[Rfam]
RNA sequence: CGAGUCGGCCGGGCGGCCGCGUCGGGUGCCGCCUCCGCCGUGCGCGGAGCAGCGGCCCCGCCGAGGAAAGUCCGGACUCCACAGGGCAGGGUGGUCGGUAACACCGACCCGGGGCGACCCGCGGGAAAGUGCCACAGAAAGCAGACCGCCACCGGACACCCCGGUGGUAAGGGUGAAACGGUGGUGUAAGAGACCACCAGCGGCCGGGGCGACCCGGCCGGCUCGGCAAACCCCACCUGGAGCAAGGUCAAGAGGGAGGUCUCGGCCUCCUGCGCAGGCGCUUGAGGGCGGCCCGCCCGAGCCUGCGGGUAGACCGCACGAGGCUGCCGGCAACGGCAGCCCUAGAUGGAUGGCCGCCGGCCCUCGCGGGCCACAGGAUCCGGCUUACAGGCCGACUCGCCCA
Number, nucleotide and partner (000 for none) at each position: 001c399002g398003a397004g396005u395006c394007g393008g392009c391010c390011g388012g358013g357014c356015g355016g354017c353018c352019g000020c063021g062022u000023c060024g059025g058026g057027u000028g000029c000030c000031g000032c000033c000034u000035c000036c000037g000038c000039c000040g000041u000042g000043c000044g000045c000046g000047g000048a000049g000050c000051a000052g000053c000054g000055g000056c000057c026058c025059c024060g023061c000062c021063g020064a000065g000066g000067a000068a386069a385070g384071u000072c383073c382074g381075g380076a379077c242078u241079c240080c239081a000082c000083a000084g294085g293086g292087c291088a000089g238090g237091g236092u235093g234094g108095u107096c106097g105098g104099u000100a000101a000102c000103a000104c098105c097106g096107a095108c094109c123110c121111g120112g119113g118114g000115c000116g000117a000118c113119c112120c111121g110122c000123g109124g233125g232126a000127a000128a000129g231130u230131g227132c226133c225134a000135c000136a000137g000138a000139a000140a000141g000142c000143a000144g000145a000146c172147c171148g168149c167150c166151a165152c164153c163154g162155g161156a000157c000158a000159c000160c000161c155162c154163g153164g152165u151166g150167g149168u148169a000170a000171g147172g146173g000174u000175g000176a000177a000178a000179c000180g198181g197182u196183g195184g194185u193186g000187u000188a000189a000190g000191a000192g000193a185194c184195c183196a182197c181198c180199a000200g222201c220202g219203g218204c217205c216206g215207g214208g213209g000210c000211g000212a000213c208214c207215c206216g205217g204218c203219c202220g201221g000222c200223u000224c000225g133226g132227c131228a000229a000230a130231c129232c125233c124234c093235a092236c091237c090238u089239g080240g079241a078242g077243c000244a000245a000246g315247g314248u313249c312250a000251a000252g000253a000254g000255g000256g000257a000258g000259g000260u000261c000262u000263c000264g000265g000266c000267c000268u000269c000270c000271u000272g000273c000274g306275c305276a304277g303278g302279c301280g000281c000282u000283u000284g000285a000286g298287g297288g296289c295290g000291g087292c086293c085294c084295g289296c288297c287298c286299g000300a000301g279302c278303c277304u276305g275306c274307g000308g000309g000310u000311a000312g249313a248314c247315c246316g000317c000318a000319c000320g000321a000322g341323g340324c339325u338326g337327c336328c335329g334330g000331c000332a000333a000334c329335g328336g327337c326338a325339g324340c323341c322342c000343u000344a000345g000346a000347u000348g000349g000350a000351u000352g018353g017354c016355c015356g014357c013358c012359g000360g000361c000362c000363c000364u000365c000366g000367c000368g000369g000370g000371c000372c000373a000374c000375a000376g000377g000378a000379u076380c075381c074382g073383g072384c070385u069386u068387a000388c011389a000390g010391g009392c008393c007394g006395a005396c004397u003398c002399g001400c000401c000402c000403a000

A member of the RNA family "Bacterial RNase P class A" from Allonocardiopsis opalescens, 403 nucleotides long. Rfam classes the family as a ribozyme. The base pairs follow the family's consensus structure, which is taken from published work. It scores 268 bits against the family's covariance model.